[Rfam]
RNA: c-di-AMP riboswitch aptamer (ydaO/yuaA leader)
Organism: Desulfotomaculum nigrificans
RNA sequence: AAAUAAAAAACGCCUAAUUUUCCCAAUGGGGGGAAGCGGGGGAACCAUGUUAUUGGGGUGAACUACCUGUGGUAGCGGGCUAACUUUCAGUCCGAACCCGUCAGCUAACUCCGCAGGCGUAGAAAGUGGGGAAAU
Numbered sequence: 001a002a003a004u005a006a007a008a009a010a011c012g013c014c015u016a017a018u019u020u021u022c023c024c025a026a027u028g029g030g031g032g033g034a035a036g037c038g039g040g041g042g043a044a045c046c047a048u049g050u051u052a053u054u055g056g057g058g059u060g061a062a063c064u065a066c067c068u069g070u071g072g073u074a075g076c077g078g079g080c081u082a083a084c085u086u087u088c089a090g091u092c093c094g095a096a097c098c099c100g101u102c103a104g105c106u107a108a109c110u111c112c113g114c115a116g117g118c119g120u121a122g123a124a125a126g127u128g129g130g131g132a133a134a135u
Stems, first nucleotide, its partner, number of pairs: 011119004018035006036114006046055002056099003064074004077093004